[Rfam]
Nucleotides: 068
Base pairs, nucleotide, nucleotide: 014062015061031050032049033048034047035046036045
Number, partner (000 for none) and nucleotide at each position: 001000u002000c003000c004000c005000u006000a007000u008000g009000a010000g011000g012000a013000a014062g015061u016000c017000a018000u019000c020000c021000c022000a023000a024000a025000a026000g027000a028000u029000a030000g031050g032049a033048a034047g035046u036045g037000c038000c039000g040000u041000a042000u043000g044000a045036c046035a047034c048033u049032u050031u051000a052000a053000a054000a055000c056000c057000a058000g059000c060000a061015g062014c063000g064000g065000a066000a067000c068000a